[Rfam]
RNA sequence: UGACGGGCCACCUCUUCCCACCGAGAGGCGCGCUAUCUGAAAGGGUAGAAAAU
Numbered sequence: 001u002g003a004c005g006g007g008c009c010a011c012c013u014c015u016u017c018c019c020a021c022c023g024a025g026a027g028g029c030g031c032g033c034u035a036u037c038u039g040a041a042a043g044g045g046u047a048g049a050a051a052a053u
Stems, first nucleotide, its partner, number of pairs: 011028006033048006
Rfam assigns this 53-nucleotide sequence from Candidatus Tokpelaia sp. JSC188 to the family "serC leader".
The organism belongs to Candidatus Tokpelaia, within Bacteria.
Rfam classes the family as a cis-regulatory leader.
Its family is annotated with regulation of gene expression in the Gene Ontology.
The pairing is the family consensus, mapped onto this sequence.
This family is a putative regulatory RNA structure that is found upstream of the serC-serA operon in some alpha-proteobacteria. The final stem of the structure overlaps the ribosome binding site of the serC reading frame.
On this family, see Corbino et al., Genome Biol 2005: "Evidence for a second class of S-adenosylmethionine riboswitches and other regulatory RNA motifs in alpha-proteobacteria".